Shown here is a 135-nucleotide RNA from Galbitalea soli, a member of the family "FMN riboswitch aptamer (RFN element)".
[Rfam]
RNA sequence: AACGUGCUCCGGGGUCGGUGUAAGUCCGAACCGGUGGUGAUAGUCCACGAGCCGCUGACGGGCGCAAGUCCCACGCGGUUGACUCGGUGAAACUCCGGGACCGACGGUUAAAGUCCGGAUGGGAGGAAGCACGAG
Number, nucleotide and partner (000 for none) at each position: 001a000002a000003c133004g132005u131006g130007c129008u128009c126010c125011g000012g000013g000014g000015u000016c028017g027018g026019u000020g000021u000022a000023a000024g000025u000026c018027c017028g016029a000030a114031c113032c103033g102034g048035u047036g046037g045038u000039g000040a000041u000042a000043g101044u100045c037046c036047a035048c034049g000050a000051g079052c078053c077054g076055c075056u000057g000058a000059c000060g000061g000062g000063c000064g000065c000066a000067a000068g000069u000070c000071c000072c000073a000074c000075g055076c054077g053078g052079u051080u000081g000082a000083c099084u098085c097086g096087g095088u000089g000090a000091a000092a000093c000094u000095c087096c086097g085098g084099g083100a044101c043102c033103g032104a000105c117106g116107g115108u000109u000110a000111a000112a000113g031114u030115c107116c106117g105118g000119a000120u000121g000122g000123g000124a000125g010126g009127a000128a008129g007130c006131a005132c004133g003134a000135g000
Description:
Gene Ontology term of the family: FMN binding. Lineage of the source: Bacteria > Actinomycetota > Actinomycetes > Micrococcales > Galbitalea. A search with the family's covariance model found it, with a score of 95 bits.